[Rfam]
RNA: TPP riboswitch aptamer (THI element)
RNA sequence: GUGCCGUUACACGGGAGCCCGGUGCACCGGGCUGAGAGGCGGGCUGGGGCAGCCUGCGACCGUCCGAACCUGAUCCGGGUCAUACCGGCGAAGGGAGAGCGAAGUACUUUGA
Numbered sequence: 001g002u003g004c005c006g007u008u009a010c011a012c013g014g015g016a017g018c019c020c021g022g023u024g025c026a027c028c029g030g031g032c033u034g035a036g037a038g039g040c041g042g043g044c045u046g047g048g049g050c051a052g053c054c055u056g057c058g059a060c061c062g063u064c065c066g067a068a069c070c071u072g073a074u075c076c077g078g079g080u081c082a083u084a085c086c087g088g089c090g091a092a093g094g095g096a097g098a099g100c101g102a103a104g105u106a107c108u109u110u111g112a
Base pairs, nucleotide, nucleotide: 005101006100007099008098010097011063012062013061014060017032018031019030020029021028039057040056041055042054043053044052045051046050069094070093071092075088076087077086078085